[Rfam]
RNA sequence: GGCGAUAAACGACGUCGGAAUAAGCUCUUUGGACCCGGGGGCGGUACCCGGCGCCUCCACCCAAGCCCGUCGCGAUGAUUUGCGGCGGGCUUCGGCGGGGGCGAAAUAGGUUCGACAGGGAGUGUAAAGGACUGUCUUUUGCCCGGCAUUGUACCGCCGUUAUCGGGCUAUUCUUAUAGUUGCCAAUGACAACUAUGCUCCGGUCGCCGUCGCCGCGUAA
Numbered sequence: 001g002g003c004g005a006u007a008a009a010c011g012a013c014g015u016c017g018g019a020a021u022a023a024g025c026u027c028u029u030u031g032g033a034c035c036c037g038g039g040g041g042c043g044g045u046a047c048c049c050g051g052c053g054c055c056u057c058c059a060c061c062c063a064a065g066c067c068c069g070u071c072g073c074g075a076u077g078a079u080u081u082g083c084g085g086c087g088g089g090c091u092u093c094g095g096c097g098g099g100g101g102c103g104a105a106a107u108a109g110g111u112u113c114g115a116c117a118g119g120g121a122g123u124g125u126a127a128a129g130g131a132c133u134g135u136c137u138u139u140u141g142c143c144c145g146g147c148a149u150u151g152u153a154c155c156g157c158c159g160u161u162a163u164c165g166g167g168c169u170a171u172u173c174u175u176a177u178a179g180u181u182g183c184c185a186a187u188g189a190c191a192a193c194u195a196u197g198c199u200c201c202g203g204u205c206g207c208c209g210u211c212g213c214c215g216c217g218u219a220a
Stems, first nucleotide, its partner, number of pairs: 001143005014132003025122003029118003035051005052103007144159004
The record is a 220-nucleotide RNA sequence from Methylocella silvestris, which matches "permuted transfer-messenger RNA" in Rfam. For this family Rfam cites "The tmRNA Website: invasion by an intron" (Williams, Nucleic Acids Res, 2002). Rfam's curators write: Bacterial tmRNA, also known as 10Sa RNA or SsrA, is named for its dual tRNA and mRNA-like properties. By type it is a non-coding RNA gene.